Shown here is a 347-nucleotide RNA from Sphingomonas spermidinifaciens, a member of the family "Alphaproteobacteria transfer-messenger RNA".
[Rfam]
RNA sequence: GGGCUUUUCUUUGGCGGCGCGGCGCCUAUAUCGUCCGGUGCCGGCUCGUCCGGCUAUGGCGAUAAAAUGUAGCGUACAAUAGGCGCAGCGGACCCGGGGGCAGUACCCGGCGGCUCCACCAGAAAUGGUGGUGGAUCUGGACACCGUUUCUGACGGGGCCGAACCAGGAUCGACGUGUGUUGAAAAGCGCUGCUUUCGCCCGGAAUGGGACCACCGCAACGGCCCAUCUCACAAGUGCCAACGAUAACGAGGCGCUCGCGAUUGCGGCCUAACCCCAAGACCUCACGGUCUAGGUUAGAUUGACAAAAGCGCGGUAGGGACCGCACCGGGCAACAGAAGCGGAAACC
Numbered sequence: 001g002g003g004c005u006u007u008u009c010u011u012u013g014g015c016g017g018c019g020c021g022g023c024g025c026c027u028a029u030a031u032c033g034u035c036c037g038g039u040g041c042c043g044g045c046u047c048g049u050c051c052g053g054c055u056a057u058g059g060c061g062a063u064a065a066a067a068u069g070u071a072g073c074g075u076a077c078a079a080u081a082g083g084c085g086c087a088g089c090g091g092a093c094c095c096g097g098g099g100g101c102a103g104u105a106c107c108c109g110g111c112g113g114c115u116c117c118a119c120c121a122g123a124a125a126u127g128g129u130g131g132u133g134g135a136u137c138u139g140g141a142c143a144c145c146g147u148u149u150c151u152g153a154c155g156g157g158g159c160c161g162a163a164c165c166a167g168g169a170u171c172g173a174c175g176u177g178u179g180u181u182g183a184a185a186a187g188c189g190c191u192g193c194u195u196u197c198g199c200c201c202g203g204a205a206u207g208g209g210a211c212c213a214c215c216g217c218a219a220c221g222g223c224c225c226a227u228c229u230c231a232c233a234a235g236u237g238c239c240a241a242c243g244a245u246a247a248c249g250a251g252g253c254g255c256u257c258g259c260g261a262u263u264g265c266g267g268c269c270u271a272a273c274c275c276c277a278a279g280a281c282c283u284c285a286c287g288g289u290c291u292a293g294g295u296u297a298g299a300u301u302g303a304c305a306a307a308a309g310c311g312c313g314g315u316a317g318g319g320a321c322c323g324c325a326c327c328g329g330g331c332a333a334c335a336g337a338a339g340c341g342g343a344a345a346c347c
Base pairs, nucleotide, nucleotide: 040054041053042052043051044050058200059199060198061197062196069193070192071191072190073189074188075187084179085178086177088176089175090174094110095109096108097107098106111161112160113159114158115157116156117155201216202215203214206226207225208224211222212221312328313327314326315325321341